[Rfam]
Shown here is a 240-nucleotide RNA sequence from Clostridium neonatale, a member of the family "T-box leader". Rfam 15.1 lists 19,395 matches to the family in 1,923 species. The family's RNA type in Rfam is cis-regulatory leader. Pairs were carried over by alignment from the consensus structure, which is taken from published work. It scores 105 bits against the family's covariance model. Rfam's curators write: Uncharged tRNA acts as the effector for transcription antitermination of genes in the T-box leader family. T-boxes are found upstream of many aminoacyl-tRNA synthetase genes and some amino acid biosynthetic genes usually in Gram-positive bacteria. The anticodon of a specific tRNA base pairs to a specifier sequence within the T-box motif, and the NCCA acceptor tail of the tRNA base pairs to a conserved bulge in the T-box antiterminator hairpin.
RNA sequence: UGAAAGACUGUGAUUAGGAAAAGUAUCUUAGAAUUUAUUUUUAGAGAGUAGCUGUUUGGUGGAAAGCUAUAAUAAAUCUAUGAGAAAAUCACCUAGGAGUUGGAGACUGAAAAGCUUAUACGCUGAAUAAGUUAUCACGUUGACCUGCGUUAAAGGAUAGAGUAUGUAUGUACUUGAACUAAAGCAUUUAUUAUGAUGCAAUGACCUUAGGUGGUUUGCGAAUUCAACUUCGUCCUUUAG
Number, nucleotide and partner (000 for none) at each position: 001u000002g000003a000004a000005a000006g000007a100008c099009u000010g000011u000012g000013a000014u000015u095016a094017g093018g092019a000020a000021a000022a000023g000024u000025a000026u083027c082028u000029u080030a079031g078032a000033a000034u000035u000036u000037a073038u072039u071040u000041u000042u000043a000044g000045a000046g000047a000048g070049u069050a068051g067052c066053u065054g000055u000056u000057u000058g000059g000060u000061g000062g000063a000064a000065a053066g052067c051068u050069a049070u048071a039072a038073u037074a000075a000076a000077u000078c031079u030080a029081u000082g027083a026084g000085a000086a000087a000088a000089u000090c000091a000092c018093c017094u016095a015096g000097g000098a000099g008100u007101u000102g000103g136104a135105g133106a132107c131108u130109g000110a000111a000112a000113a000114g000115c000116u000117u000118a000119u000120a000121c000122g000123c000124u000125g000126a000127a000128u000129a000130a108131g107132u106133u105134a000135u104136c103137a000138c149139g148140u147141u000142g000143a000144c000145c000146u000147g140148c139149g138150u000151u000152a000153a000154a000155g000156g000157a000158u000159a000160g000161a000162g000163u000164a000165u000166g000167u000168a000169u000170g000171u000172a000173c000174u000175u000176g000177a000178a000179c000180u000181a000182a000183a000184g000185c000186a000187u000188u000189u000190a000191u000192u000193a000194u000195g000196a000197u000198g000199c000200a000201a000202u000203g000204a000205c000206c000207u000208u000209a236210g235211g234212u000213g000214g000215u000216u000217u000218g233219c232220g231221a230222a229223u000224u000225c000226a000227a000228c000229u222230u221231c220232g219233u218234c211235c210236u209237u000238u000239a000240g000